[Rfam]
Rfam assigns this 143-nucleotide sequence from Schistosoma haematobium to the family "U12 minor spliceosomal RNA". Clan: U2 clan. The family has 62 seed sequences and 2,106 matches in Rfam 15.1. On this family, see Tarn and Steitz, Trends Biochem Sci 1997: "Pre-mRNA splicing: the discovery of a new spliceosome doubles the challenge".
RNA sequence: AUGCCUUAAACUAAUGAGUAAGGAAAAUAGCAGACCGGUUUAAAUUAUCGGUCCCCAAACGUAUUUGGGCUAUUGUUUGCAGGGUAUAGGUUGCCCUGUCGUGUCCCCUACUUAGGGACGUGGCGGCGUUAGCGGCCUGCCCA
Numbered sequence: 001a002u003g004c005c006u007u008a009a010a011c012u013a014a015u016g017a018g019u020a021a022g023g024a025a026a027a028u029a030g031c032a033g034a035c036c037g038g039u040u041u042a043a044a045u046u047a048u049c050g051g052u053c054c055c056c057a058a059a060c061g062u063a064u065u066u067g068g069g070c071u072a073u074u075g076u077u078u079g080c081a082g083g084g085u086a087u088a089g090g091u092u093g094c095c096c097u098g099u100c101g102u103g104u105c106c107c108c109u110a111c112u113u114a115g116g117g118a119c120g121u122g123g124c125g126g127c128g129u130u131a132g133c134g135g136c137c138u139g140c141c142c143a
Base pairs, nucleotide, nucleotide: 004023005022006021007020008019033053034052035051036050037049038048039047055068056067057066058065059064082142083141084140085139088138089137090136091135092134093133094132097125098124099123100122101121103119104118105117106116107115